[Rfam]
RNA sequence: GAACCAAUCACGCUGAAUCUUUCGUUUUGCGAAAGAGCGGGGGAACCGAUACAUAGAGAGCGUUGCGGUCGCAGCCGCAUCGAUGCUCAGGAUGUAUUUGAUUUCUUUACAGGGUCUCAGGGGUGAAUUCGGCGCAGUCCGCCAUGAGCGGGCAGGCGUUGAUCGGGCGGCUCUCUUUCGCCCAAACCCGACAGCUAACUCCGUAAGCGGCAUAAAGAGAGGGU
Number, nucleotide and partner (000 for none) at each position: 001g000002a000003a000004c000005c000006a000007a000008u000009c000010a000011c209012g208013c207014u206015g000016a000017a000018u036019c035020u034021u033022u032023c031024g030025u029026u000027u000028u000029g025030c024031g023032a022033a021034a020035g019036a018037g204038c203039g202040g201041g200042g199043g000044a000045a000046c000047c120048g000049a000050u000051a000052c000053a000054u000055a000056g000057a000058g000059a000060g000061c000062g000063u000064u000065g000066c000067g000068g000069u000070c000071g000072c000073a000074g000075c000076c000077g000078c000079a000080u000081c000082g000083a000084u000085g000086c000087u000088c000089a000090g000091g000092a000093u000094g000095u000096a000097u000098u000099u000100g000101a000102u000103u000104u000105c000106u000107u000108u000109a000110c000111a000112g000113g000114g000115u000116c000117u000118c000119a000120g047121g189122g188123g187124u000125g000126a000127a000128u000129u162130c161131g160132g159133c158134g157135c156136a000137g000138u000139c000140c000141g000142c000143c000144a000145u000146g000147a000148g000149c000150g000151g000152g000153c000154a000155g000156g135157c134158g133159u132160u131161g130162a129163u000164c000165g183166g182167g181168c180169g000170g000171c000172u000173c000174u000175c000176u000177u000178u000179c000180g168181c167182c166183c165184a000185a000186a000187c123188c122189c121190g000191a000192c000193a000194g000195c000196u000197a000198a000199c042200u041201c040202c039203g038204u037205a000206a014207g013208c012209g011210g000211c000212a000213u000214a000215a000216a000217g000218a000219g000220a000221g000222g000223g000224u000